The family of this 106-nucleotide RNA is "RT-9 RNA".
The family's RNA type in Rfam is small RNA.
[Rfam]
RNA sequence: UAAUGGUGCGGUUACGGCUUCAUCAGCUAGGAUGUACGCUAUUAAGUCUCAAAGGAACUUAAUUCUCUCACUGGUUGAAAGGCCAGGUGUAAACACAUUAACAAUG
Numbered sequence: 001u002a003a004u005g006g007u008g009c010g011g012u013u014a015c016g017g018c019u020u021c022a023u024c025a026g027c028u029a030g031g032a033u034g035u036a037c038g039c040u041a042u043u044a045a046g047u048c049u050c051a052a053a054g055g056a057a058c059u060u061a062a063u064u065c066u067c068u069c070a071c072u073g074g075u076u077g078a079a080a081g082g083c084c085a086g087g088u089g090u091a092a093a094c095a096c097a098u099u100a101a102c103a104a105u106g
Stems, first nucleotide, its partner, number of pairs: 004025005010019003069089004